This 274-nucleotide RNA sequence from Clostridium sp. DSM 8431 belongs to the Rfam family "glmS glucosamine-6-phosphate activated ribozyme aptamer". Pairs were carried over by alignment from the consensus structure, which is taken from published work.
[Rfam]
RNA sequence: AAUUAUUAUAAAGCGCCAGGACUUAAGUGAAAAAGAAAAUUAGACACAGCUUAGUAAGUUCGCCUAACCAAAUCAUAGAUUUGCAAGAGGAAAAUGAAACUAAGCACAGCUUAGUAAGUUCGCCUAACCAAAUCAUAGAUUUGGAGGCUCACUUAAGUUGACGAGGAUGGGGAGUAUCGAAUUCUUCGGCGGGUGCCCCACGGUAUCGCACUACCGUAAAUGGCUGACAAAACUAUGAAGUGAUUUAUAGUACAAAUUCAGUCUGGUGUUAAAA
Numbered sequence: 001a002a003u004u005a006u007u008a009u010a011a012a013g014c015g016c017c018a019g020g021a022c023u024u025a026a027g028u029g030a031a032a033a034a035g036a037a038a039a040u041u042a043g044a045c046a047c048a049g050c051u052u053a054g055u056a057a058g059u060u061c062g063c064c065u066a067a068c069c070a071a072a073u074c075a076u077a078g079a080u081u082u083g084c085a086a087g088a089g090g091a092a093a094a095u096g097a098a099a100c101u102a103a104g105c106a107c108a109g110c111u112u113a114g115u116a117a118g119u120u121c122g123c124c125u126a127a128c129c130a131a132a133u134c135a136u137a138g139a140u141u142u143g144g145a146g147g148c149u150c151a152c153u154u155a156a157g158u159u160g161a162c163g164a165g166g167a168u169g170g171g172g173a174g175u176a177u178c179g180a181a182u183u184c185u186u187c188g189g190c191g192g193g194u195g196c197c198c199c200a201c202g203g204u205a206u207c208g209c210a211c212u213a214c215c216g217u218a219a220a221u222g223g224c225u226g227a228c229a230a231a232a233c234u235a236u237g238a239a240g241u242g243a244u245u246u247a248u249a250g251u252a253c254a255a256a257u258u259c260a261g262u263c264u265g266g267u268g269u270u271a272a273a274a
Stems, first nucleotide, its partner, number of pairs: 020159008029150001168200005177189004201216005222263005233250007

It is annotated as a riboswitch.
A search with the family's covariance model found it, with a score of 105 bits.